[Rfam]
RNA sequence: GGCAGUUCUUGGGUGAUGCACCCCAGAAUCGGGUUCCCUCCUCUCUGGUUCUGGGUGUGUCACCCAAGGACUGCA
Numbered sequence: 001g002g003c004a005g006u007u008c009u010u011g012g013g014u015g016a017u018g019c020a021c022c023c024c025a026g027a028a029u030c031g032g033g034u035u036c037c038c039u040c041c042u043c044u045c046u047g048g049u050u051c052u053g054g055g056u057g058u059g060u061c062a063c064c065c066a067a068g069g070a071c072u073g074c075a
Base pairs, nucleotide, nucleotide: 002074003073005071006070007069008068009067010066011065012064013063014062015061016060017059019057020056021055022054023053025052026051027050028049029048030047031046032045033044

Rfam assigns this 75-nucleotide sequence from Pipistrellus kuhlii to the family "mir-9223 microRNA precursor family". A search with the family's covariance model found it, with a score of 88 bits. The base pairs follow the family's consensus structure, which was predicted with RNAalifold. The organism belongs to Pipistrellus, within Eukaryota.